This 200-nucleotide sequence from Actinomadura sp. BRA 177 belongs to the Rfam family "c-di-AMP riboswitch aptamer (ydaO/yuaA leader)". A search with the family's covariance model found it, with a score of 65 bits. Taxonomically the source falls in Actinomadura (Bacteria, Bacillati, Actinomycetota, Actinomycetes). Rfam's curators write: This family represents a conserved RNA structure found upstream of the ydaO and yuaA genes in Bacillus subtilis and related genes in other bacteria. Its family is annotated with regulation of gene expression and cyclic-di-AMP binding in the Gene Ontology.

RNA sequence: GCAGCGGCAGCGCCGAAUCCGCCGCAGCGCGGAACCGGGGACCCACAUCGCCGGAGUCCGGGAGACCUCCCGGACGGGCAUUCCGGCACCCGGGGUGAAUCGGUGCGUCUCUUCCGGCCCCGUUCCGGUGGAGCCCGCCGUAGGGCCACUUCCACGCCCGAACCCGUCAGCUAACCCGGUAGGCGUCUGGAAGAGCGAAG
Numbered sequence: 001g002c003a004g005c006g007g008c009a010g011c012g013c014c015g016a017a018u019c020c021g022c023c024g025c026a027g028c029g030c031g032g033a034a035c036c037g038g039g040g041a042c043c044c045a046c047a048u049c050g051c052c053g054g055a056g057u058c059c060g061g062g063a064g065a066c067c068u069c070c071c072g073g074a075c076g077g078g079c080a081u082u083c084c085g086g087c088a089c090c091c092g093g094g095g096u097g098a099a100u101c102g103g104u105g106c107g108u109c110u111c112u113u114c115c116g117g118c119c120c121c122g123u124u125c126c127g128g129u130g131g132a133g134c135c136c137g138c139c140g141u142a143g144g145g146c147c148a149c150u151u152c153c154a155c156g157c158c159c160g161a162a163c164c165c166g167u168c169a170g171c172u173a174a175c176c177c178g179g180u181a182g183g184c185g186u187c188u189g190g191a192a193g194a195g196c197g198a199a200g
Base pairs, nucleotide, nucleotide: 011185012184013183014182018033019032020031021030022029034180035179036178037177038176039175044092093165094164095163101140102139103138104137143159144158145157146156